Shown here is a 61-nucleotide RNA sequence from Drouetiella hepatica, a member of the family "Nitrogen stress-induced RNA 1". Pairs were carried over by alignment from the consensus structure. The family has 17 seed sequences and 962 matches in Rfam 15.1.
RNA sequence: AGGUAGAUGCACCCUGACUUAAAUCCCUUCAGCUCAUUUCGGUGGGUUCAGGGAUUUUUUA
Numbered sequence: 001a002g003g004u005a006g007a008u009g010c011a012c013c014c015u016g017a018c019u020u021a022a023a024u025c026c027c028u029u030c031a032g033c034u035c036a037u038u039u040c041g042g043u044g045g046g047u048u049c050a051g052g053g054a055u056u057u058u059u060u061a
Base pairs, nucleotide, nucleotide: 002013003012004011026053027052028051029050031048032047033046034045035044036043
Background:
A search with the family's covariance model found it, with a score of 45 bits. It is annotated as a small RNA. Lineage of the source: Bacteria > Bacillati > Oculatellales > Oculatellaceae > Drouetiella hepatica. The literature on the family includes a 2010 paper in J Mol Biol by Ionescu et al., "Heterocyst-specific transcription of NsiR1, a non-coding RNA encoded in a tandem array of direct repeats in cyanobacteria".